Notes:
int-alpA RNA: a 70-nucleotide RNA from Stieleria maiorica. From the family's description: Acidobacteria (1 example), Planctomycetes (1 example), Proteobacteria. Rfam classes the family as a small RNA.
RNA sequence: GCCACGGCUAGGUUGAUCCCCGAAAAGCCGGUCCCAUACCGGCCCCGCCGUGGCGUUUGUUUUCUUAUGG
Numbered sequence: 001g002c003c004a005c006g007g008c009u010a011g012g013u014u015g016a017u018c019c020c021c022g023a024a025a026a027g028c029c030g031g032u033c034c035c036a037u038a039c040c041g042g043c044c045c046c047g048c049c050g051u052g053g054c055g056u057u058u059g060u061u062u063u064c065u066u067a068u069g070g
Stems, first nucleotide, its partner, number of pairs: 001054008011021002027043005033070002038065001

It scores 43 bits against the family's covariance model.